Rfam assigns this 124-nucleotide RNA sequence from Glycine soja to the family "Small nucleolar RNA SNORD14". U14 small nucleolar RNA (U14 snoRNA) is required for early cleavages of eukaryotic precursor rRNAs. In yeasts, this molecule possess a stem-loop region (known as the Y-domain) which is essential for function. The family's consensus secondary structure was predicted with PFOLD. Its family is annotated with nucleolus and RNA processing in the Gene Ontology.
[Rfam]
RNA sequence: AGUCGAUGAUGACAAUCACAAAGGCUUGUUUCUCUAAACAUUCGCAGUGGCCGCCUAAGAGCUUUCGCCUUCGCCAGGCUUGAGAGCUUGUGCUGUUAUUAUCCUUCCUUGGAUGUCUGAGAUU
Numbered sequence: 001a002g003u004c005g006a007u008g009a010u011g012a013c014a015a016u017c018a019c020a021a022a023g024g025c026u027u028g029u030u031u032c033u034c035u036a037a038a039c040a041u042u043c044g045c046a047g048u049g050g051c052c053g054c055c056u057a058a059g060a061g062c063u064u065u066c067g068c069c070u071u072c073g074c075c076a077g078g079c080u081u082g083a084g085a086g087c088u089u090g091u092g093c094u095g096u097u098a099u100u101a102u103c104c105u106u107c108c109u110u111g112g113a114u115g116u117c118u119g120a121g122a123u124u
Base pairs, nucleotide, nucleotide: 001124002123003122004121061087062086063085064084065083066082
Rfam classes the family as a C/D-box small nucleolar RNA.
A search with the family's covariance model found it, with a score of 78 bits.